RNA: MIR2619 microRNA precursor family
Organism: Medicago truncatula
RNA sequence: AAACAGCCCCCUAUGUUUUGAUUAUUUGGCAGUUUUGGACCCCCAAGGCAAAAAAAAAAAAAAAAAUUGACACGUGGCACCUCACUUAGGGUGCCAUAAUGGACUGGGGGUCCAAAACUGCUAUAGAAUCAAAACAUAGGGGGCUGUUU
Numbered sequence: 001a002a003a004c005a006g007c008c009c010c011c012u013a014u015g016u017u018u019u020g021a022u023u024a025u026u027u028g029g030c031a032g033u034u035u036u037g038g039a040c041c042c043c044c045a046a047g048g049c050a051a052a053a054a055a056a057a058a059a060a061a062a063a064a065a066a067u068u069g070a071c072a073c074g075u076g077g078c079a080c081c082u083c084a085c086u087u088a089g090g091g092u093g094c095c096a097u098a099a100u101g102g103a104c105u106g107g108g109g110g111u112c113c114a115a116a117a118c119u120g121c122u123a124u125a126g127a128a129u130c131a132a133a134a135c136a137u138a139g140g141g142g143g144c145u146g147u148u149u
Stems, first nucleotide, its partner, number of pairs: 001149002004146005012138012025125001027123019075096007